The family of this 45-nucleotide sequence from Macrosolen cochinchinensis is "Plastid-ycf3 group II-D1 intron". Taxonomically the source falls in Macrosolen (Eukaryota, Mesangiospermae, eudicotyledons, Pentapetalae).
RNA sequence: CUUACUGUCGUGUAUCUCCGAUUAAUGCAGCCCCCGAUGCUUCAA
Numbered sequence: 001c002u003u004a005c006u007g008u009c010g011u012g013u014a015u016c017u018c019c020g021a022u023u024a025a026u027g028c029a030g031c032c033c034c035c036g037a038u039g040c041u042u043c044a045a
Stems, first nucleotide, its partner, number of pairs: 007022004029041003
The literature on the family includes a 2023 paper in Plant Commun by Richter et al., "Retrograde signaling in plants: A critical review focusing on the GUN pathway and beyond". Rfam's curators put it in the seed alignment. Plastid rpl16 is a non-coding RNA (ncRNA) recognised in plastids. It was recognised in and intronic region of a ribosome rpl16 gene.